Description: Shown here is a 99-nucleotide RNA sequence from Medicago truncatula, a member of the family "MIR2587 microRNA precursor family". Gene Ontology terms of the family: miRNA-mediated post-transcriptional gene silencing and RISC complex. A search with the family's covariance model found it, with a score of 87 bits. The family's consensus secondary structure was predicted with RNAalifold.

RNA sequence: GUGUCAUGGUCAUUGUUGACCGUUCAUAGGAACCUUGCAAUUGCAAUGCAUUGCAGCUUGUGUGAGGUUCAUAUAACGAUCAAUAGAGACCUUUGACAU
Numbered sequence: 001g002u003g004u005c006a007u008g009g010u011c012a013u014u015g016u017u018g019a020c021c022g023u024u025c026a027u028a029g030g031a032a033c034c035u036u037g038c039a040a041u042u043g044c045a046a047u048g049c050a051u052u053g054c055a056g057c058u059u060g061u062g063u064g065a066g067g068u069u070c071a072u073a074u075a076a077c078g079a080u081c082a083a084u085a086g087a088g089a090c091c092u093u094u095g096a097c098a099u
Base pairs, nucleotide, nucleotide: 001099002098003097004096005095006094008091009090010089011088013086014085015084016083017082018081019080021078022077023076024075026074027073028072030070031069032068033067034066035065036064037063038062039061043057